[Rfam]
RNA sequence: CGGCGGGCUAGGCCGGGGGGUUCGGCGUCCCCUGUAACCGGAAACCGUCGAUAUGCCGGGGCCGAAGCCCGGGGGGCGGUUCCCAAAACCGCGCCCGGAAGCCGGGGCACAACGGUGAUCCCUCGUCCCGGGGGGCCGGCGGUGGGCGAGGUCCGGCUGGAGGGCCGGGCUAACGCCCUUUGCCCGCCGAACCCCGCCAGGCCCGGAAGGGAGCAGCGGUAGGCGGGACGUGCGGCGCUCCCGGGGUAGCGGGGGUGAGCGAGCCCCGGUGGAAGGGCGCGGCGGAGGGUUCCCACCCCCGGGCGCGCCCGCCG
Numbered sequence: 001c002g003g004c005g006g007g008c009u010a011g012g013c014c015g016g017g018g019g020g021u022u023c024g025g026c027g028u029c030c031c032c033u034g035u036a037a038c039c040g041g042a043a044a045c046c047g048u049c050g051a052u053a054u055g056c057c058g059g060g061g062c063c064g065a066a067g068c069c070c071g072g073g074g075g076g077c078g079g080u081u082c083c084c085a086a087a088a089c090c091g092c093g094c095c096c097g098g099a100a101g102c103c104g105g106g107g108c109a110c111a112a113c114g115g116u117g118a119u120c121c122c123u124c125g126u127c128c129c130g131g132g133g134g135g136c137c138g139g140c141g142g143u144g145g146g147c148g149a150g151g152u153c154c155g156g157c158u159g160g161a162g163g164g165c166c167g168g169g170c171u172a173a174c175g176c177c178c179u180u181u182g183c184c185c186g187c188c189g190a191a192c193c194c195c196g197c198c199a200g201g202c203c204c205g206g207a208a209g210g211g212a213g214c215a216g217c218g219g220u221a222g223g224c225g226g227g228a229c230g231u232g233c234g235g236c237g238c239u240c241c242c243g244g245g246g247u248a249g250c251g252g253g254g255g256u257g258a259g260c261g262a263g264c265c266c267c268g269g270u271g272g273a274a275g276g277g278c279g280c281g282g283c284g285g286a287g288g289g290u291u292c293c294c295a296c297c298c299c300c301g302g303g304c305g306c307g308c309c310c311g312c313c314g
Stems, first nucleotide, its partner, number of pairs: 001314008011063004015033007038059004043054001067304009078293002082288002089282008101270008110261001113259001120255007127245008135236004139231003142180001144178005150171009183227006194219004202211003
A member of the RNA family "Archaeal signal recognition particle RNA" from Thermococcus kodakarensis, 314 nucleotides long.
The family is grouped with related families in Rfam's "SRP clan".
The sequence is in the family's curated seed alignment.
The source organism's lineage runs through Archaea, Methanobacteriota, Thermococcales, Thermococcaceae and Thermococcus kodakarensis.